[Rfam]
RNA: Small nucleolar RNA Z162
RNA sequence: CUGGGCACUAUGAUGAGUUUUUUGCUGCAUAUGUGAAGCUGGUGUGCUAAUGAUUCACAGCUAUCAAGUCCUUUUCAUUCUGAGUGCCUU
Numbered sequence: 001c002u003g004g005g006c007a008c009u010a011u012g013a014u015g016a017g018u019u020u021u022u023u024g025c026u027g028c029a030u031a032u033g034u035g036a037a038g039c040u041g042g043u044g045u046g047c048u049a050a051u052g053a054u055u056c057a058c059a060g061c062u063a064u065c066a067a068g069u070c071c072u073u074u075u076c077a078u079u080c081u082g083a084g085u086g087c088c089u090u
Base pairs, nucleotide, nucleotide: 004088005087006086007085008084010078011077012076013075038047039046